[Rfam]
RNA: Actinobacteria sRNA Ms_IGR-5
RNA sequence: ACACGAGAAGGGAGGUGGUUCGGCAGAUGUAUGCAAACCGGACGCGUGAGGUGACUGCGGGCUAGCGGCCCGUCAUCACACCGAGUGCGGUGCCGGACCAGCACGUGAGGGAUGCGUGCAGCCGGCCCAAUCCCAGCAGUCACCGACCCGCCAGCUCGCCGGUACGUCCGGCCGGCUCCUCCCGCCGCGAGGCGGAGGAACCCGAGCUGGCGGGUCGUCCGCG
Numbered sequence: 001a002c003a004c005g006a007g008a009a010g011g012g013a014g015g016u017g018g019u020u021c022g023g024c025a026g027a028u029g030u031a032u033g034c035a036a037a038c039c040g041g042a043c044g045c046g047u048g049a050g051g052u053g054a055c056u057g058c059g060g061g062c063u064a065g066c067g068g069c070c071c072g073u074c075a076u077c078a079c080a081c082c083g084a085g086u087g088c089g090g091u092g093c094c095g096g097a098c099c100a101g102c103a104c105g106u107g108a109g110g111g112a113u114g115c116g117u118g119c120a121g122c123c124g125g126c127c128c129a130a131u132c133c134c135a136g137c138a139g140u141c142a143c144c145g146a147c148c149c150g151c152c153a154g155c156u157c158g159c160c161g162g163u164a165c166g167u168c169c170g171g172c173c174g175g176c177u178c179c180u181c182c183c184g185c186c187g188c189g190a191g192g193c194g195g196a197g198g199a200a201c202c203c204g205a206g207c208u209g210g211c212g213g214g215u216c217g218u219c220c221g222c223g
Stems, first nucleotide, its partner, number of pairs: 015058005060127004065122002068119002071116001074114003144217013158176006